[Rfam]
RNA sequence: AGAUAACUCAGAAUCCUCCUACGGGGGAUAUGAGUAACGGUCGUUUGGCACGGCCAGCAGUCCACCUGUUCAAUCAAACCUCGGGGCGUUUCGCACCGAGCGAACAGGUUGGUUGCAAACCGUAAUAUCCCAACGCUGAGCGAACCAGAGGUUCGCGACGUACGCGAAUCUUUGAUUCGCUUGACUCGGGAAUCCUCGCCCUUUAGGGCGGGGA
Number, nucleotide and partner (000 for none) at each position: 001a000002g000003a000004u037005a000006a000007c034008u033009c032010a031011g000012a000013a029014u028015c027016c025017u024018c023019c000020u000021a000022c000023g018024g017025g016026g000027g015028a014029u013030a000031u010032g009033a008034g007035u000036a000037a004038c000039g055040g054041u053042c052043g051044u000045u000046u000047g000048g000049c000050a000051c043052g042053g041054c040055c039056a000057g000058c115059a114060g113061u000062c112063c111064a000065c108066c107067u106068g105069u104070u103071c102072a000073a000074u000075c000076a000077a000078a000079c000080c000081u000082c000083g097084g096085g000086g094087c093088g000089u000090u000091u000092c000093g087094c086095a000096c084097c083098g000099a000100g000101c000102g071103a070104a069105c068106a067107g066108g065109u000110u000111g063112g062113u060114u059115g058116c000117a000118a000119a000120c000121c000122g000123u000124a000125a000126u000127a000128u191129c190130c189131c188132a000133a186134c000135g000136c000137u000138g000139a000140g000141c000142g000143a000144a000145c000146c000147a000148g000149a000150g000151g000152u000153u000154c000155g000156c000157g000158a000159c000160g000161u000162a000163c000164g000165c000166g000167a000168a000169u000170c000171u000172u000173u000174g000175a000176u000177u000178c000179g000180c000181u000182u000183g000184a000185c000186u133187c000188g131189g130190g129191a128192a000193u214194c213195c212196u211197c210198g209199c208200c207201c206202u000203u000204u000205a000206g201207g200208g199209c198210g197211g196212g195213g194214a193
RNA: Sense overlapping transcript RNA 0042 (sot)